Shown here is a 61-nucleotide RNA sequence from Synechococcus sp. LTW-R, a member of the family "Glutamine-II riboswitch aptamer". Its family is annotated with glutamine binding in the Gene Ontology. The base pairs follow the family's consensus structure, which is taken from published work. The organism belongs to Synechococcus, within Bacteria.
[Rfam]
RNA sequence: AAACGUUCGCCUUGAUCACCUCAAGGUGCAGUUCACCUGAGUCAUGGAACGGGGACUCGGG
Numbered sequence: 001a002a003a004c005g006u007u008c009g010c011c012u013u014g015a016u017c018a019c020c021u022c023a024a025g026g027u028g029c030a031g032u033u034c035a036c037c038u039g040a041g042u043c044a045u046g047g048a049a050c051g052g053g054g055a056c057u058c059g060g061g
Stems, first nucleotide, its partner, number of pairs: 004051005010026005036061006042054002